Overview
A member of the RNA family "transfer-messenger RNA" from Corynebacterium sp. KPL1989, 388 nucleotides long. About the family: Bacterial tmRNA, also known as 10Sa RNA or SsrA, is named for its dual tRNA and mRNA-like properties. Its role is to liberate the mRNA from a stalled ribosome. To accomplish this part of the tmRNA is used as a reading frame that ends in a translation stop signal.
RNA sequence: GGGGUUGAUUUGGUUUCGACUUCGUCUGUUGAGCCAGGGGAAGCGUGCCGGUGUAAGGUAACGGCCACCGUAAGCGGCGUUACAAAUACAAUAAACGCAGAGAAGACCUCUCAGCGUGACUACGCCCUCGCUGCCUAAUUAAGCUGCAGCGACCGCGUGUCUGUCAGCCCAAGUUAUGCUCUUGGCUUGGAAUCUGGCAUCGACUAAAGAGCUUGCCUUCUGGCUGAGUCAUCAGGGCCAGUAGGGACACUCACUGAUGGCUGGGCCCAUCUUCCGAGACGUGUUCGUGCGAGUCGGAGGGCCGAGUAAGGAUCAUGCGCGAACUGCGCACGGAGAAGCCCUGGCGAAACAACGAAGGACCCGGGUUCAAGUCCCGGCAGCUCCACAG
Numbered sequence: 001g002g003g004g005u006u007g008a009u010u011u012g013g014u015u016u017c018g019a020c021u022u023c024g025u026c027u028g029u030u031g032a033g034c035c036a037g038g039g040g041a042a043g044c045g046u047g048c049c050g051g052u053g054u055a056a057g058g059u060a061a062c063g064g065c066c067a068c069c070g071u072a073a074g075c076g077g078c079g080u081u082a083c084a085a086a087u088a089c090a091a092u093a094a095a096c097g098c099a100g101a102g103a104a105g106a107c108c109u110c111u112c113a114g115c116g117u118g119a120c121u122a123c124g125c126c127c128u129c130g131c132u133g134c135c136u137a138a139u140u141a142a143g144c145u146g147c148a149g150c151g152a153c154c155g156c157g158u159g160u161c162u163g164u165c166a167g168c169c170c171a172a173g174u175u176a177u178g179c180u181c182u183u184g185g186c187u188u189g190g191a192a193u194c195u196g197g198c199a200u201c202g203a204c205u206a207a208a209g210a211g212c213u214u215g216c217c218u219u220c221u222g223g224c225u226g227a228g229u230c231a232u233c234a235g236g237g238c239c240a241g242u243a244g245g246g247a248c249a250c251u252c253a254c255u256g257a258u259g260g261c262u263g264g265g266c267c268c269a270u271c272u273u274c275c276g277a278g279a280c281g282u283g284u285u286c287g288u289g290c291g292a293g294u295c296g297g298a299g300g301g302c303c304g305a306g307u308a309a310g311g312a313u314c315a316u317g318c319g320c321g322a323a324c325u326g327c328g329c330a331c332g333g334a335g336a337a338g339c340c341c342u343g344g345c346g347a348a349a350c351a352a353c354g355a356a357g358g359a360c361c362c363g364g365g366u367u368c369a370a371g372u373c374c375c376g377g378c379a380g381c382u383c384c385a386c387a388g
Base pairs, nucleotide, nucleotide: 001384002383003382004381005380006379007378020357021356022355023354024353025352029348033345034344035343036342037341038340039339044332045331046330047329048328049070050069051068052067053066058083059082060081061080062079063078128152129151130150131149132148133147134146162199163198164197165196166195167194169190170189171188172187173186174185175184178212179211180210181209182208183207216245217244218243220241221240222239223238224237227262228261229260230259231258232257264303265302266301267300268299270297271296280291281290283324284323285322286321287318288317289316361377362376363375364374365373
Background:
It scores 154 bits against the family's covariance model.